RNA sequence: GAACAAUAUGGUUAGUUCCCAACGGGCAUGACUGCUUCCACUUGGGUUCCUGAGGCGUGUGAGA
Dot-bracket structure: ..(((...(........((((.....................)))).......)...)))....

The family of this 64-nucleotide RNA from Trypanosoma brucei is "Trypanosomatid snoRNA TB9Cs1H3". For this family Rfam cites "A genome-wide analysis of C/D and H/ACA-like small nucleolar RNAs in Trypanosoma brucei reveals a trypanosome-specific pattern of rRNA modification" (Liang et al., RNA, 2005). Rfam 15.1 lists 40 matches to the family in 14 species. By type it is an H/ACA-box small nucleolar RNA. Rfam links the family to the GO terms RNA processing and nucleolus.